[Rfam]
RNA: MIR2118 microRNA precursor family
RNA sequence: GUUAGAAAAAAGAAAGAAAUUAGUAUCUAAGGGCAGUAGGCAUCAUAACAUGGGGGAGAGGCCAAACUCUUCCCCCUCUAUAUUCAGGGGUCAAGAAUUGUUUUGGUGUUUUCCCAUUGUCUCCCAUGUCUAUUGUUCUUAUGUGCUCCUUCCUCUUCCUUUUAACU
Numbered sequence: 001g002u003u004a005g006a007a008a009a010a011a012g013a014a015a016g017a018a019a020u021u022a023g024u025a026u027c028u029a030a031g032g033g034c035a036g037u038a039g040g041c042a043u044c045a046u047a048a049c050a051u052g053g054g055g056g057a058g059a060g061g062c063c064a065a066a067c068u069c070u071u072c073c074c075c076c077u078c079u080a081u082a083u084u085c086a087g088g089g090g091u092c093a094a095g096a097a098u099u100g101u102u103u104u105g106g107u108g109u110u111u112u113c114c115c116a117u118u119g120u121c122u123c124c125c126a127u128g129u130c131u132a133u134u135g136u137u138c139u140u141a142u143g144u145g146c147u148c149c150u151u152c153c154u155c156u157u158c159c160u161u162u163u164a165a166c167u
Base pairs, nucleotide, nucleotide: 010157011156012155013154016151017150022147023146026143028141029140030139031138032137033136034135035134037132038131039130040129041128042127043126047122049119050118053115055114056113057112058111059110060109
Dot-bracket structure: .........((((..((....((..(.((((((((.(((((((...(.((..(.((((((................................................)))))))..))..)...))))))).)))))))).)..))..))..))))..........